[Rfam]
A member of the RNA family "Plastid-ccsA-ndhD-2 3UTR RNA", 50 nucleotides long.
Rfam describes the family as follows. Plastid ccsA-ndhD-2 is a non-coding RNA (ncRNA) recognised in plastids. It was found in the three prime untranslated region (3UTR) of ccsA and ndhD genes, its 3UTR location suggests a role in transcript maturation.
The family has 421 seed sequences and 875 matches in Rfam 15.1.
It is annotated as a cis-regulatory element.

RNA sequence: UUGUGAGAACCUUUUGAAUCAUUGUAUUACUUGAUUCAAAAGGUUCUUGA
Numbered sequence: 001u002u003g004u005g006a007g008a009a010c011c012u013u014u015u016g017a018a019u020c021a022u023u024g025u026a027u028u029a030c031u032u033g034a035u036u037c038a039a040a041a042g043g044u045u046c047u048u049g050a
Stems, first nucleotide, its partner, number of pairs: 004049018